[Rfam]
This 200-nucleotide RNA sequence belongs to the Rfam family "manA RNA". Rfam's curators put it in the seed alignment. Rfam's curators write: manA RNA has been located in 5'UTR regions of genes of mannose or fructose metabolism. Has been proposed as a cis-regulatory element and as a riboswitch candidate for his complex secondary structure. By type it is a cis-regulatory element.
RNA sequence: UAGGCGAAGGACGCUUUGCUUACAGGGAGUGACUGAAUAAACUUACUGGCAACCGCUGGUUAAGGUGAUGAGUCAGAGGUGGUGCUCGCUGUUCGCAAGAACAGAACUACUGAACCAAGUAGGACUCAGGCAACAACGUAUUUACUUUCUGUAGUAAUGCCCGUUGUUUGUUGGUAUACAGGAACCCAACCUCCCACCCA
Numbered sequence: 001u002a003g004g005c006g007a008a009g010g011a012c013g014c015u016u017u018g019c020u021u022a023c024a025g026g027g028a029g030u031g032a033c034u035g036a037a038u039a040a041a042c043u044u045a046c047u048g049g050c051a052a053c054c055g056c057u058g059g060u061u062a063a064g065g066u067g068a069u070g071a072g073u074c075a076g077a078g079g080u081g082g083u084g085c086u087c088g089c090u091g092u093u094c095g096c097a098a099g100a101a102c103a104g105a106a107c108u109a110c111u112g113a114a115c116c117a118a119g120u121a122g123g124a125c126u127c128a129g130g131c132a133a134c135a136a137c138g139u140a141u142u143u144a145c146u147u148u149c150u151g152u153a154g155u156a157a158u159g160c161c162c163g164u165u166g167u168u169u170g171u172u173g174g175u176a177u178a179c180a181g182g183a184a185c186c187c188a189a190c191c192u193c194c195c196a197c198c199c200a
Base pairs, nucleotide, nucleotide: 001022002021003020004019005018006017007016008015009014025195026194027193028192029191032066033065045060046059047058048057049056050055069128070127071126072125073124074123076087077086078085080117081116082115083114089104090103091102092101093100094099107122108121109120110119111118132168133167134166135165136164137163138162142157143156144155145154149181150180151179152178170190171189172188173187174186